[Rfam]
RNA: Streptomyces RNA 6106
RNA sequence: ACGUCGCCCCAUGCGACGCCCCCGGCCCGCGCAAGGCCGGUACAGCGGGGGUGGUGCCGUGUCGGCGCAGCACCACCCCCGCGCU
Numbered sequence: 001a002c003g004u005c006g007c008c009c010c011a012u013g014c015g016a017c018g019c020c021c022c023c024g025g026c027c028c029g030c031g032c033a034a035g036g037c038c039g040g041u042a043c044a045g046c047g048g049g050g051g052u053g054g055u056g057c058c059g060u061g062u063c064g065g066c067g068c069a070g071c072a073c074c075a076c077c078c079c080c081g082c083g084c085u
Stems, first nucleotide, its partner, number of pairs: 002018006023040001025038001026036002045082013059068003